[Rfam]
RNA: Ribosomal protein L10 leader
RNA sequence: AUAAUAUAUCGCAUAUUGCCGAAGACAGCAGGUGCCGUAAGGCGUAACCGUUUGGCCUGCCGAGGAGUUUAUUUCAGAAGUGAACGUGAUAAUAAGCCUCUCUGUCUUUGCAGAGAGGCUUAUUAUUGUUUAGA
Numbered sequence: 001a002u003a004a005u006a007u008a009u010c011g012c013a014u015a016u017u018g019c020c021g022a023a024g025a026c027a028g029c030a031g032g033u034g035c036c037g038u039a040a041g042g043c044g045u046a047a048c049c050g051u052u053u054g055g056c057c058u059g060c061c062g063a064g065g066a067g068u069u070u071a072u073u074u075c076a077g078a079a080g081u082g083a084a085c086g087u088g089a090u091a092a093u094a095a096g097c098c099u100c101u102c103u104g105u106c107u108u109u110g111c112a113g114a115g116a117g118g119c120u121u122a123u124u125a126u127u128g129u130u131u132a133g134a
Stems, first nucleotide, its partner, number of pairs: 028060006034043003096119010